[Rfam]
RNA sequence: CGCACGCGGGUUUGCGGUCGACGGGGAAACAUCCCGCCGCUCGCUCCGGUGCCCUCCAAAGCCUUCGGCGUAGGAGGGCGACGCCCGCGGAGGCCCAACCGGAAAAGGAGAAAC
Numbered sequence: 001c002g003c004a005c006g007c008g009g010g011u012u013u014g015c016g017g018u019c020g021a022c023g024g025g026g027a028a029a030c031a032u033c034c035c036g037c038c039g040c041u042c043g044c045u046c047c048g049g050u051g052c053c054c055u056c057c058a059a060a061g062c063c064u065u066c067g068g069c070g071u072a073g074g075a076g077g078g079c080g081a082c083g084c085c086c087g088c089g090g091a092g093g094c095c096c097a098a099c100c101g102g103a104a105a106a107g108g109a110g111a112a113a114c
Stems, first nucleotide, its partner, number of pairs: 001092001003090001005089006014044002022036002025033001051079006
RNA: rpsB sRNA